[Rfam]
RNA sequence: UGUCUCCUCUACCCUCCACGGGUGGAUUCAAGCCCGGACCGGUUCUGCCAGUCCGGGCUUUUUUUG
Numbered sequence: 001u002g003u004c005u006c007c008u009c010u011a012c013c014c015u016c017c018a019c020g021g022g023u024g025g026a027u028u029c030a031a032g033c034c035c036g037g038a039c040c041g042g043u044u045c046u047g048c049c050a051g052u053c054c055g056g057g058c059u060u061u062u063u064u065u066g
Stems, first nucleotide, its partner, number of pairs: 008026007031059008
Rfam assigns this 66-nucleotide sequence from Hydrogenophaga sp. IBVHS1 to the family "Betaproteobacteria toxic small RNA".
The source organism's lineage runs through Bacteria, Pseudomonadota, Burkholderiales, Comamonadaceae and Hydrogenophaga.
Rfam's curators write: Overexpression in amino aid rich medium attenuates growth, suggesting role in repressing amino acid intake and metabolism.
Rfam 15.1 lists 951 matches to the family in 508 species.
A reference for the family is Kimelman et al. (2012), "A vast collection of microbial genes that are toxic to bacteria", Genome Res.
The base pairs follow the family's consensus structure, which was predicted with WAR.